The record is a 118-nucleotide sequence from Pleurocapsales cyanobacterium LEGE 10410, which matches "Guanidine-I riboswitch aptamer" in Rfam. From the family's description: This family represents a conserved RNA structure found upstream of the ykkC and yxkD genes in Bacillus subtilis and related genes in other bacteria.
[Rfam]
RNA sequence: UUAUUUGGCUUCUAGGGUUCCGAUUCAAGGCAGUUGAAUGACUGGUCCAAGAGAAGCAGGCUACCUCAUAAAAGUUUAGAUAUGGGUGGCUUCACGGCGGGAAAAAAGCCCGGGAGGA
Numbered sequence: 001u002u003a004u005u006u007g008g009c010u011u012c013u014a015g016g017g018u019u020c021c022g023a024u025u026c027a028a029g030g031c032a033g034u035u036g037a038a039u040g041a042c043u044g045g046u047c048c049a050a051g052a053g054a055a056g057c058a059g060g061c062u063a064c065c066u067c068a069u070a071a072a073a074g075u076u077u078a079g080a081u082a083u084g085g086g087u088g089g090c091u092u093c094a095c096g097g098c099g100g101g102a103a104a105a106a107a108g109c110c111c112g113g114g115a116g117g118a
Stems, first nucleotide, its partner, number of pairs: 008057005015048002020045002022042001023039006059091008093113001095116001099111003